[Rfam]
RNA sequence: UGACUUCACCGGGGGUGCCCUGGCUGCGAUCUGCGGCAGGGGCUGAGACAUACCCCUCUCACCUGAUCUGGGUUGUGCCAGCGUAGGGAGCGUGAAGUGAAAGCCCU
Numbered sequence: 001u002g003a004c005u006u007c008a009c010c011g012g013g014g015g016u017g018c019c020c021u022g023g024c025u026g027c028g029a030u031c032u033g034c035g036g037c038a039g040g041g042g043c044u045g046a047g048a049c050a051u052a053c054c055c056c057u058c059u060c061a062c063c064u065g066a067u068c069u070g071g072g073u074u075g076u077g078c079c080a081g082c083g084u085a086g087g088g089a090g091c092g093u094g095a096a097g098u099g100a101a102a103g104c105c106c107u
Stems, first nucleotide, its partner, number of pairs: 006095004011056004016050001017043005062087004068081004